[Rfam]
RNA sequence: AUUCAUGCAUAGGGGGUCAUUGUAGAAGCGUGUUCGUCGCGACCCCUGCCAGCCCUUUUCAGGGCUGCAAUUCUACA
Numbered sequence: 001a002u003u004c005a006u007g008c009a010u011a012g013g014g015g016g017u018c019a020u021u022g023u024a025g026a027a028g029c030g031u032g033u034u035c036g037u038c039g040c041g042a043c044c045c046c047u048g049c050c051a052g053c054c055c056u057u058u059u060c061a062g063g064g065c066u067g068c069a070a071u072u073c074u075a076c077a
Base pairs, nucleotide, nucleotide: 013046014045015044016043017042018041021077022076023075024074025073026072027071028040029039030038050067051066052065053064054063055062056061

This 77-nucleotide sequence from Parnassius apollo belongs to the Rfam family "Mammalian CPEB3 ribozyme". It scores 57 bits against the family's covariance model. NCBI's taxonomy places the organism under Eukaryota, Metazoa, Pancrustacea, Eumetabola, Parnassius. The base pairs follow the family's consensus structure, which is taken from published work.